The record is a 187-nucleotide sequence from Enterobacillus tribolii, which matches "Manganese Mn2+ riboswitch aptamer (yybP-ykoY)" in Rfam. Rfam's curators write: This RNA was originally discovered in E. coli during a large scale screen and was named SraF. The family was later found to exist upstream of related families of protein genes in many bacteria, including the the yybP and ykoK genes in B. subtilis. The specific functions of these proteins are unknown, but this structured RNA element may be involved in their genetic regulation as a riboswitch. A search with the family's covariance model found it, with a score of 56 bits.

[Rfam]
RNA sequence: CGCCCCGUCAUUUGGGGAGUAGCCGGCUUGUGGUGACAGGAUAAUCCAUCCGCCCAUAAGCGCCCGUAUCAACAUACUCGUUCAUACAGAACGUGGUGCGGGCAACCGAACGGUAGGCGAGACCAUAGGCAUGCAGCUCCGUCGUUGGUUGGGGGUGGGUUGCGUGUAUAUGGAGCUCCCGGCCGAG
Numbered sequence: 001c002g003c004c005c006c007g008u009c010a011u012u013u014g015g016g017g018a019g020u021a022g023c024c025g026g027c028u029u030g031u032g033g034u035g036a037c038a039g040g041a042u043a044a045u046c047c048a049u050c051c052g053c054c055c056a057u058a059a060g061c062g063c064c065c066g067u068a069u070c071a072a073c074a075u076a077c078u079c080g081u082u083c084a085u086a087c088a089g090a091a092c093g094u095g096g097u098g099c100g101g102g103c104a105a106c107c108g109a110a111c112g113g114u115a116g117g118c119g120a121g122a123c124c125a126u127a128g129g130c131a132u133g134c135a136g137c138u139c140c141g142u143c144g145u146u147g148g149u150u151g152g153g154g155g156u157g158g159g160u161u162g163c164g165u166g167u168a169u170a171u172g173g174a175g176c177u178c179c180c181g182g183c184c185g186a187g
Base pairs, nucleotide, nucleotide: 026061027060028059029058030057031056032055033054062103063102064101065100066099067098068097069096070095071094079093080092081091082090083089